The record is a 134-nucleotide RNA from Desulfuribacillus alkaliarsenatis, which matches "Ribosomal protein L20 leader" in Rfam. NCBI's taxonomy places the organism under Bacteria, Bacillati, Desulfuribacillales, Desulfuribacillaceae, Desulfuribacillus. Rfam's curators write: This family is a putative r-protein leader autoregulatory structure found in B. subtilis and other low-GC Gram-positive bacteria. It is located in the 5' untranslated regions of mRNAs encoding initiation factor 3 followed by ribosomal proteins L35 and L20 (infC-rpmI-rplT). A Rho-independent transcription terminator structure that is probably involved in regulation is included at the 3' end. Gene Ontology term of the family: regulation of gene expression. The base pairs follow the family's consensus structure, which was predicted with CMfinder.
RNA sequence: AAUGACAAGAAGGAGCAUCCGCUUCUCACCUGAUUGACGCAAGUGUUGACGGGUAUAACUACAACCGAUUGAGUGUAUACAAUACCUAUGGUUAGAGUUAGUGCGGAUGAUUUCAUUCGCACUUUUUUAUUUGU
Numbered sequence: 001a002a003u004g005a006c007a008a009g010a011a012g013g014a015g016c017a018u019c020c021g022c023u024u025c026u027c028a029c030c031u032g033a034u035u036g037a038c039g040c041a042a043g044u045g046u047u048g049a050c051g052g053g054u055a056u057a058a059c060u061a062c063a064a065c066c067g068a069u070u071g072a073g074u075g076u077a078u079a080c081a082a083u084a085c086c087u088a089u090g091g092u093u094a095g096a097g098u099u100a101g102u103g104c105g106g107a108u109g110a111u112u113u114c115a116u117u118c119g120c121a122c123u124u125u126u127u128u129a130u131u132u133g134u
Base pairs, nucleotide, nucleotide: 011026012025013024014023015022016021028054029053030052034049035048036047037046038045102121103120104119105118106117107116108115109114